[Rfam]
RNA sequence: AAGAAGCGCAGAGGCGCGGUCUUAAUAAGUAGCUGCGGUGAGGAGUCCGACGUUCCCCUGACCCGCUGUAAAAGGUCAGACCGCCGAAGGAUGCCAUUGUCGGAAAUGACAUUCCUGGUUUCCGGGUUAACAGCCCGGCAACUGUCACCAAGACGGUGGAGAGCUGACUGCUUU
Numbered sequence: 001a002a003g004a005a006g007c008g009c010a011g012a013g014g015c016g017c018g019g020u021c022u023u024a025a026u027a028a029g030u031a032g033c034u035g036c037g038g039u040g041a042g043g044a045g046u047c048c049g050a051c052g053u054u055c056c057c058c059u060g061a062c063c064c065g066c067u068g069u070a071a072a073a074g075g076u077c078a079g080a081c082c083g084c085c086g087a088a089g090g091a092u093g094c095c096a097u098u099g100u101c102g103g104a105a106a107u108g109a110c111a112u113u114c115c116u117g118g119u120u121u122c123c124g125g126g127u128u129a130a131c132a133g134c135c136c137g138g139c140a141a142c143u144g145u146c147a148c149c150a151a152g153a154c155g156g157u158g159g160a161g162a163g164c165u166g167a168c169u170g171c172u173u174u
Stems, first nucleotide, its partner, number of pairs: 006169001009166003016084007024076001032069002035066004088116003091112003095108004117143004122138006145159005

The family of this 174-nucleotide RNA from Sporobacter termitidis is "Lysine riboswitch aptamer". The family's consensus secondary structure is taken from published work. The organism belongs to Sporobacter termitidis, within Bacteria.